The family of this 92-nucleotide RNA from Paracoccus suum is "Rhodo-rpoB RNA". The match comes from Rfam's covariance-model search (58 bits). It is annotated as a cis-regulatory element.
RNA sequence: GGCUCGGGAGCUGCCCGGUGGGACGGGCAGCACGGAUAGAGCCGGAUCACCCCCAGUCUUGCCGCCCCGACCGGGCCCGACGGUCGCAGGGU
Numbered sequence: 001g002g003c004u005c006g007g008g009a010g011c012u013g014c015c016c017g018g019u020g021g022g023a024c025g026g027g028c029a030g031c032a033c034g035g036a037u038a039g040a041g042c043c044g045g046a047u048c049a050c051c052c053c054c055a056g057u058c059u060u061g062c063c064g065c066c067c068c069g070a071c072c073g074g075g076c077c078c079g080a081c082g083g084u085c086g087c088a089g090g091g092u
Base pairs, nucleotide, nucleotide: 001043002042003041004040005039010031011030012029013028014027015026016025017024064092065091066090067089069085070084071083072082073081